The record is a 122-nucleotide sequence from Rhizobium sp. AC44/96, which matches "Rhizobiales sRNA Atu_C8" in Rfam. The source organism's lineage runs through Bacteria, Pseudomonadota, Hyphomicrobiales, Rhizobiaceae and Rhizobium. It scores 123 bits against the family's covariance model.

[Rfam]
RNA sequence: GAAAAUCGCAGUAGCUCUUAUCGUGGUGGGAAGGCGCAUGGGCAGGAUGGUGUAACCAUCCGGCGAUAGCCACCCAUGCGCUAGACGAAGGCUCCCACAGGGGCCUUUUUUUAUGCCCAAAA
Numbered sequence: 001g002a003a004a005a006u007c008g009c010a011g012u013a014g015c016u017c018u019u020a021u022c023g024u025g026g027u028g029g030g031a032a033g034g035c036g037c038a039u040g041g042g043c044a045g046g047a048u049g050g051u052g053u054a055a056c057c058a059u060c061c062g063g064c065g066a067u068a069g070c071c072a073c074c075c076a077u078g079c080g081c082u083a084g085a086c087g088a089a090g091g092c093u094c095c096c097a098c099a100g101g102g103g104c105c106u107u108u109u110u111u112u113a114u115g116c117c118c119a120a121a122a
Stems, first nucleotide, its partner, number of pairs: 007028001009026001029118002033082010045061006063070002087107001089106007